[Rfam]
RNA sequence: AGCAUUAUUACCGCCAUUCCUUAUUGGCGGGCUUGCUGACGACUGCACCCAACCCGCCCUGGAGGCGGGUUUU
Numbered sequence: 001a002g003c004a005u006u007a008u009u010a011c012c013g014c015c016a017u018u019c020c021u022u023a024u025u026g027g028c029g030g031g032c033u034u035g036c037u038g039a040c041g042a043c044u045g046c047a048c049c050c051a052a053c054c055c056g057c058c059c060u061g062g063a064g065g066c067g068g069g070u071u072u073u
Stems, first nucleotide, its partner, number of pairs: 011030006051071008
Shown here is a 73-nucleotide RNA sequence from Pseudomonas protegens, a member of the family "Pseudomonas sRNA P9". The source organism's lineage runs through Bacteria, Pseudomonadota, Pseudomonadaceae, Pseudomonas and Pseudomonas protegens. This small RNA (sRNA) was computationally identified in the genome of the opportunistic pathogen Pseudomonas aeruginosa and its expression verified by northern blot analysis. The base pairs follow the family's consensus structure, which was predicted with RNAalifold. A reference for the family is Livny et al. (2006), "Identification of 17 Pseudomonas aeruginosa sRNAs and prediction of sRNA-encoding genes in 10 diverse pathogens using the bioinformatic tool sRNAPredict2", Nucleic Acids Res.